[Rfam]
RNA sequence: UUUGCCUCAAGGCAAACCGUCGGAAACGGCGGGACGCAAAGCUAAAGGGGUGUCGGUGCAAAGCCACGCCAGCCAGCUGCCAAA
Numbered sequence: 001u002u003u004g005c006c007u008c009a010a011g012g013c014a015a016a017c018c019g020u021c022g023g024a025a026a027c028g029g030c031g032g033g034a035c036g037c038a039a040a041g042c043u044a045a046a047g048g049g050g051u052g053u054c055g056g057u058g059c060a061a062a063g064c065c066a067c068g069c070c071a072g073c074c075a076g077c078u079g080c081c082a083a084a
Base pairs, nucleotide, nucleotide: 012037013036017032018031019030020029021028022027040078041077042076043075047074048073049070050069051068056067057066058065
Dot-bracket structure: ...........((...((((((....))))))...))..((((...(((((....(((......))))))..))))))......
A member of the RNA family "c-di-GMP-I riboswitch aptamer" from Bdellovibrio bacteriovorus, 84 nucleotides long. The family's consensus secondary structure is taken from published work.